[Rfam]
Nucleotides: 121
Stems, first nucleotide, its partner, number of pairs: 003079004009068004015062005028054008097121001105120006
Number, partner (000 for none) and nucleotide at each position: 001000a002000a003079g004078c005077c006076a007000u008000g009068c010067g011066u012065u013000g014000a015062g016061c017060a018059u019058a020000g021000a022000g023000c024000g025000a026000a027000c028054u029053a030052u031051u032050c033049u034048u035047u036000c037000a038000c039000c040000u041000u042000u043000u044000a045000c046000u047035a048034a049033a050032g051031a052030a053029u054028a055000c056000c057000g058019u059018g060017u061016g062015u063000g064000a065012g066011g067010c068009g069000c070000u071000u072000u073000a074000a075000a076006u077005g078004g079003c080000g081000u082000a083000u084000g085000c086000c087000u088000a089000u090000u091000u092000u093000u094000u095000u096000u097121g098000g099000a100000a101000g102000g103000g104000u105120g106119c107118a108117c109116c110115u111000c112000u113000g114000u115110g116109g117108g118107u119106g120105c121097c